Ribosomal protein L20 leader: a 120-nucleotide sequence from Salisediminibacterium beveridgei. For this family Rfam cites "Diverse mechanisms for regulating ribosomal protein synthesis in Escherichia coli" (Zengel and Lindahl, Prog Nucleic Acid Res Mol Biol, 1994). The base pairs follow the family's consensus structure, which was predicted with CMfinder. This family is a putative r-protein leader autoregulatory structure found in B. subtilis and other low-GC Gram-positive bacteria. It is located in the 5' untranslated regions of mRNAs encoding initiation factor 3 followed by ribosomal proteins L35 and L20 (infC-rpmI-rplT). A Rho-independent transcription terminator structure that is probably involved in regulation is included at the 3' end.

RNA sequence: GAAAGCAAGAAGAGGCGCCCGCUUCUCACCUGAUCGGCAAUUGUGCUGGCAGGUUACGACUUAAUUCCAAACAUCAAUUGGAGUGUGGGCGCACGUAUGUGCCCACACUUUUUUAUGUCG
Numbered sequence: 001g002a003a004a005g006c007a008a009g010a011a012g013a014g015g016c017g018c019c020c021g022c023u024u025c026u027c028a029c030c031u032g033a034u035c036g037g038c039a040a041u042u043g044u045g046c047u048g049g050c051a052g053g054u055u056a057c058g059a060c061u062u063a064a065u066u067c068c069a070a071a072c073a074u075c076a077a078u079u080g081g082a083g084u085g086u087g088g089g090c091g092c093a094c095g096u097a098u099g100u101g102c103c104c105a106c107a108c109u110u111u112u113u114u115a116u117g118u119c120g
Stems, first nucleotide, its partner, number of pairs: 011026006028054003034049005084107010